[Rfam]
RNA sequence: UGCUGGUGGCAGCCCCCAGUGCUGUUAUCUCCUUUGGCACAGGGCUCCCUGGAGCCAGGGGAGACGCUGCCACUGAAGCUCAAGUG
Numbered sequence: 001u002g003c004u005g006g007u008g009g010c011a012g013c014c015c016c017c018a019g020u021g022c023u024g025u026u027a028u029c030u031c032c033u034u035u036g037g038c039a040c041a042g043g044g045c046u047c048c049c050u051g052g053a054g055c056c057a058g059g060g061g062a063g064a065c066g067c068u069g070c071c072a073c074u075g076a077a078g079c080u081c082a083a084g085u086g
Stems, first nucleotide, its partner, number of pairs: 001086004

This 86-nucleotide RNA from Zonotrichia albicollis belongs to the Rfam family "Z6 small nucleolar RNA". By type it is a C/D-box small nucleolar RNA. On this family, see Galardi et al., Mol Cell Biol 2002: "Purified box C/D snoRNPs are able to reproduce site-specific 2'-O-methylation of target RNA in vitro". Pairs were carried over by alignment from the consensus structure, which was predicted with PFOLD.